Rfam assigns this 84-nucleotide RNA sequence from Crypturellus soui to the family "Small nucleolar RNA SNORD121A". Lineage of the source: Eukaryota > Vertebrata > Teleostomi > Archosauria > Crypturellus. The match comes from Rfam's covariance-model search (78 bits). The family's consensus secondary structure was predicted with WAR.
Nucleotides: 084
Base pairs, nucleotide, nucleotide: 001084002083003082004081005080006079008077009076010075011074
Number, partner (000 for none) and nucleotide at each position: 001084u002083g003082c004081c005080a006079g007000a008077a009076a010075a011074c012000g013000a014000u015000g016000a017000u018000g019000u020000g021000g022000u023000a024000u025000u026000u027000c028000c029000a030000a031000g032000c033000a034000c035000a036000u037000a038000u039000c040000u041000g042000a043000c044000u045000g046000u047000u048000c049000u050000u051000u052000g053000u054000g055000g056000a057000a058000a059000a060000c061000u062000g063000a064000c065000u066000a067000u068000u069000u070000c071000u072000g073000a074011g075010u076009u077008u078000u079006c080005u081004g082003g083002c084001g